The family of this 124-nucleotide RNA from a Lentisphaerota bacterium is "FMN riboswitch aptamer (RFN element)".
Its family is annotated with FMN binding in the Gene Ontology.
NCBI's taxonomy places the organism under Bacteria, Pseudomonadati, Lentisphaerota.
RNA sequence: GGUGAUCUUCGGGGCAAGGUGAAAUUCCUGACCGGCGGUAAAGUCCGCGACUCCCGUCUAAUGCGGGACUGAUAUGGUGAGAUUCCAUAACCGACAGUUACAGUCUGGAUGAGAGAAGAUAGUG
Numbered sequence: 001g002g003u004g005a006u007c008u009u010c011g012g013g014g015c016a017a018g019g020u021g022a023a024a025u026u027c028c029u030g031a032c033c034g035g036c037g038g039u040a041a042a043g044u045c046c047g048c049g050a051c052u053c054c055c056g057u058c059u060a061a062u063g064c065g066g067g068a069c070u071g072a073u074a075u076g077g078u079g080a081g082a083u084u085c086c087a088u089a090a091c092c093g094a095c096a097g098u099u100a101c102a103g104u105c106u107g108g109a110u111g112a113g114a115g116a117a118g119a120u121a122g123u124g
Stems, first nucleotide, its partner, number of pairs: 003122001005120006017029003031104002033093002035048004043091002052068002073089005095107003